Shown here is a 104-nucleotide sequence from Salipaludibacillus agaradhaerens, a member of the family "TPP riboswitch aptamer (THI element)". The base pairs follow the family's consensus structure, which is taken from published work. About the family: Vitamin B(1) in its active form thiamin pyrophosphate (TPP) is an essential coenzyme that is synthesised by coupling of pyrimidine and thiazole moieties in bacteria.

[Rfam]
RNA sequence: AAAAUCCACUAGGGGUGCCUUUUUGGGCUGAGAUAGGUAGUAAUCCUAAUCCCUUUGAACCUGAUCUAGUUCAUACUAGCGUAGGAAAGUGGCGUAGCGAUAAC
Numbered sequence: 001a002a003a004a005u006c007c008a009c010u011a012g013g014g015g016u017g018c019c020u021u022u023u024u025g026g027g028c029u030g031a032g033a034u035a036g037g038u039a040g041u042a043a044u045c046c047u048a049a050u051c052c053c054u055u056u057g058a059a060c061c062u063g064a065u066c067u068a069g070u071u072c073a074u075a076c077u078a079g080c081g082u083a084g085g086a087a088a089g090u091g092g093c094g095u096a097g098c099g100a101u102a103a104c
Base pairs, nucleotide, nucleotide: 006092007091008090009089010088011054012053013052014051016048017028018027019026020025035047036046037045060085061084062083063082066079067078068077069076